Group II catalytic intron D1-D4-7: a 144-nucleotide RNA sequence from Phocaeicola plebeius. About the family: Group II introns are found in rRNA, tRNA and mRNA of organelles in fungi, plants and protists, and also in mRNA in bacteria. Its family is annotated with Group II intron splicing in the Gene Ontology. It is one of the family's seed sequences.

RNA sequence: CUGUUCCGUCAGCGGUAGCCUACUAUAAGGUGCAUCUCCAGUGAUGGGUUGUGCCAAGCUUAUAGGACAAAGUACACUUUCCGAAAGGACAAGACUGAACCGUGAGGGAAUGUCAAGGGCGGUUAGUAUCAUACCGUUGAGUGG
Number, nucleotide and partner (000 for none) at each position: 001c000002u011003g010004u000005u000006c000007c000008g000009u000010c003011a002012g000013c000014g000015g000016u000017a000018g000019c000020c000021u000022a000023c000024u064025a063026u062027a061028a060029g055030g054031u053032g052033c051034a050035u000036c048037u000038c047039c046040a045041g000042u000043g000044a000045u040046g039047g038048g036049u000050u034051g033052u032053g031054c030055c029056a000057a000058g000059c000060u028061u027062a026063u025064a024065g000066g000067a000068c000069a000070a000071a000072g000073u000074a000075c000076a000077c000078u091079u000080u089081c088082c087083g000084a000085a000086a000087g082088g081089a080090c000091a078092a000093g114094a113095c112096u000097g000098a000099a000100c107101c106102g000103u000104g000105a000106g101107g100108g000109a000110a000111u000112g095113u094114c093115a000116a000117g000118g000119g137120c136121g135122g134123u133124u000125a000126g000127u000128a000129u000130c000131a000132u000133a123134c122135c121136g120137u119138u000139g000140a000141g000142u000143g000144g000